[Rfam]
RNA sequence: GUGUCCCCUAGAGUUCCCUUGAGCACUUCACUGGGACCUUCAGACCGAAAGAGUAUUGUCUUUCCCACUGAAGUGUUUGGGGGAACUCCUGGUGUCAU
Numbered sequence: 001g002u003g004u005c006c007c008c009u010a011g012a013g014u015u016c017c018c019u020u021g022a023g024c025a026c027u028u029c030a031c032u033g034g035g036a037c038c039u040u041c042a043g044a045c046c047g048a049a050a051g052a053g054u055a056u057u058g059u060c061u062u063u064c065c066c067a068c069u070g071a072a073g074u075g076u077u078u079g080g081g082g083g084a085a086c087u088c089c090u091g092g093u094g095u096c097a098u
Stems, first nucleotide, its partner, number of pairs: 005094001007092002011088010022078002024075007032067004
RNA: mir-395 microRNA precursor family